[Rfam]
RNA sequence: AUAUGUUAAGAUCCGAAUCAAAAGUGAGUGGGGAAACCAAUAAUUGGGGUGAAUUCUUGUUUAGAGACAAGAAGGGGAAACUUGGAGUUCCUAACCCGACAGCUAACCUCAUAGGAGUUAUCCAAGCGUGCGA
Numbered sequence: 001a002u003a004u005g006u007u008a009a010g011a012u013c014c015g016a017a018u019c020a021a022a023a024g025u026g027a028g029u030g031g032g033g034a035a036a037c038c039a040a041u042a043a044u045u046g047g048g049g050u051g052a053a054u055u056c057u058u059g060u061u062u063a064g065a066g067a068c069a070a071g072a073a074g075g076g077g078a079a080a081c082u083u084g085g086a087g088u089u090c091c092u093a094a095c096c097c098g099a100c101a102g103c104u105a106a107c108c109u110c111a112u113a114g115g116a117g118u119u120a121u122c123c124a125a126g127c128g129u130g131c132g133a
Stems, first nucleotide, its partner, number of pairs: 012116003018027003028112006038046002047097003055072004075091004
The record is a 133-nucleotide sequence from Haploplasma axanthum, which matches "c-di-AMP riboswitch aptamer (ydaO/yuaA leader)" in Rfam. The literature on the family includes a 2004 paper in Proc Natl Acad Sci U S A by Barrick et al., "New RNA motifs suggest an expanded scope for riboswitches in bacterial genetic control".